[Rfam]
RNA: Nuclear RNase P
RNA sequence: CGAACGAAAAGCUUGUGUUAAGGGCAAACAUACAUAUGAGCAAGGGUUCUUUUUCCUUGUUUCAUAUUUCAUUAUAUACCCUUGGGAAGGUCUGAGAAAAACCACAAUUCGUCUCUAACUUGGGACUCUUGCGAGAGCGAGAGGUGAAUCACCAGAAACGAUACCCUCUAGUCUGGUACUUGAAAUCCUAUUAGGAUGGAUUGCUUCUGGACUAGGAAAUGGUUGAAACGGGUUCACCGGUGGUAGUACUAUGAAGUGCAAUACGCAAGACAUCACAUUGUGAUGCAACUCAAUUCAGACUACUCUUUCGUUCG
Numbered sequence: 001c002g003a004a005c006g007a008a009a010a011g012c013u014u015g016u017g018u019u020a021a022g023g024g025c026a027a028a029c030a031u032a033c034a035u036a037u038g039a040g041c042a043a044g045g046g047u048u049c050u051u052u053u054u055c056c057u058u059g060u061u062u063c064a065u066a067u068u069u070c071a072u073u074a075u076a077u078a079c080c081c082u083u084g085g086g087a088a089g090g091u092c093u094g095a096g097a098a099a100a101a102c103c104a105c106a107a108u109u110c111g112u113c114u115c116u117a118a119c120u121u122g123g124g125a126c127u128c129u130u131g132c133g134a135g136a137g138c139g140a141g142a143g144g145u146g147a148a149u150c151a152c153c154a155g156a157a158a159c160g161a162u163a164c165c166c167u168c169u170a171g172u173c174u175g176g177u178a179c180u181u182g183a184a185a186u187c188c189u190a191u192u193a194g195g196a197u198g199g200a201u202u203g204c205u206u207c208u209g210g211a212c213u214a215g216g217a218a219a220u221g222g223u224u225g226a227a228a229c230g231g232g233u234u235c236a237c238c239g240g241u242g243g244u245a246g247u248a249c250u251a252u253g254a255a256g257u258g259c260a261a262u263a264c265g266c267a268a269g270a271c272a273u274c275a276c277a278u279u280g281u282g283a284u285g286c287a288a289c290u291c292a293a294u295u296c297a298g299a300c301u302a303c304u305c306u307u308u309c310g311u312u313c314g
Base pairs, nucleotide, nucleotide: 001314002313003312004311007308008307009306012269013268014267015266016265017264018263020083021082022081023080024079035066036065037064038063039061040060041059042058043057044056045055046054092298093297094296095295096294101244102243103242104241111126112125113124114123115122127142128141129140130139131138132137144237145236146235147234148233149232150231164222165221271285272284273283274282275281276280